Shown here is a 78-nucleotide RNA sequence from Alligator sinensis, a member of the family "Mammalian CPEB3 ribozyme". The match comes from Rfam's covariance-model search (45 bits). NCBI's taxonomy places the organism under Eukaryota, Chordata, Teleostomi, Archelosauria, Alligator.
[Rfam]
RNA sequence: GGCUGCAAGUUUGAGGCCAUUGCAGAAGUGCUCAUGGCCCAGCCCUUUCAGAUUCUAAGUGAAUCUGUGAAUUCUGUU
Numbered sequence: 001g002g003c004u005g006c007a008a009g010u011u012u013g014a015g016g017c018c019a020u021u022g023c024a025g026a027a028g029u030g031c032u033c034a035u036g037g038c039c040c041a042g043c044c045c046u047u048u049c050a051g052a053u054u055c056u057a058a059g060u061g062a063a064u065c066u067g068u069g070a071a072u073u074c075u076g077u078u
Stems, first nucleotide, its partner, number of pairs: 013045001015044003022077006028040001030038001049067007